The record is a 242-nucleotide RNA, which matches "HNH endonuclease-associated RNA and ORF (HEARO) RNA" in Rfam.
Rfam 15.1 lists 952 matches to the family in 249 species.
[Rfam]
RNA sequence: GUCAACCACCCCGCCCUGAAGGGCGGAGCUUGAAAGGAGGUUCGACAGGCUCGGGUUGACCAGGGAAAGCGGUACCCAACCCGCUCCGUUGGCAACAGGUACAAGACCCACCCCGGGAUGCUUCCUCAGUCCCGGGCUCUGGAAGUUCCGGAUGCAGACAACCGCGAGGGCCAGGACGAAACGGUCGGCGGCAAGGGAGCGAUCCCGAAGCCGGUUGCCAACAUUCCCGAGGGGAGACGCUU
Numbered sequence: 001g002u003c004a005a006c007c008a009c010c011c012c013g014c015c016c017u018g019a020a021g022g023g024c025g026g027a028g029c030u031u032g033a034a035a036g037g038a039g040g041u042u043c044g045a046c047a048g049g050c051u052c053g054g055g056u057u058g059a060c061c062a063g064g065g066a067a068a069g070c071g072g073u074a075c076c077c078a079a080c081c082c083g084c085u086c087c088g089u090u091g092g093c094a095a096c097a098g099g100u101a102c103a104a105g106a107c108c109c110a111c112c113c114c115g116g117g118a119u120g121c122u123u124c125c126u127c128a129g130u131c132c133c134g135g136g137c138u139c140u141g142g143a144a145g146u147u148c149c150g151g152a153u154g155c156a157g158a159c160a161a162c163c164g165c166g167a168g169g170g171c172c173a174g175g176a177c178g179a180a181a182c183g184g185u186c187g188g189c190g191g192c193a194a195g196g197g198a199g200c201g202a203u204c205c206c207g208a209a210g211c212c213g214g215u216u217g218c219c220a221a222c223a224u225u226c227c228c229g230a231g232g233g234g235a236g237a238c239g240c241u242u
Stems, first nucleotide, its partner, number of pairs: 001060007010028001012025002015022002029049004063228005068085005088222009098212001108142002112136008120238001122236006148201001

For this family Rfam cites "Exceptional structured noncoding RNAs revealed by bacterial metagenome analysis" (Weinberg et al., Nature, 2009). The family's RNA type in Rfam is non-coding RNA gene. It scores 105 bits against the family's covariance model.